A member of the RNA family "radC RNA" from Tolumonas auensis, 149 nucleotides long. Rfam 15.1 lists 500 matches to the family in 142 species. The family's consensus secondary structure is taken from published work.
Nucleotides: 149
Base pairs, nucleotide, nucleotide: 011038012037013036014035015033018032019031020030021029022028023027043066044065045064046063047062048061052089053088054087055086068085069084070083071082072081073080117149118148119147124143125142126141127140128139129138130137131136
Number, partner (000 for none) and nucleotide at each position: 001000a002000g003000g004000c005000u006000u007000g008000c009000c010000c011038c012037a013036u014035g015033c016000u017000u018032g019031c020030u021029g022028a023027c024000g025000u026000u027023g028022u029021c030020a031019g032018c033015g034000a035014c036013a037012u038011g039000c040000c041000a042000g043066g044065c045064a046063a047062c048061c049000a050000u051000c052089g053088g054087u055086c056000u057000u058000c059000g060000a061048g062047g063046u064045u065044g066043c067000g068085g069084c070083g071082c072081g073080g074000c075000a076000c077000c078000c079000g080073c081072c082071g083070c084069g085068u086055g087054a088053c089052c090000g091000a092000g093000c094000c095000a096000g097000u098000u099000c100000g101000c102000a103000a104000c105000g106000c107000a108000u109000c110000c111000c112000u113000c114000c115000g116000u117149g118148c119147g120000a121000a122000c123000g124143a125142c126141c127140a128139u129138c130137g131136g132000c133000u134000u135000g136131c137130c138129g139128g140127u141126g142125g143124u144000g145000g146000a147119u148118g149117c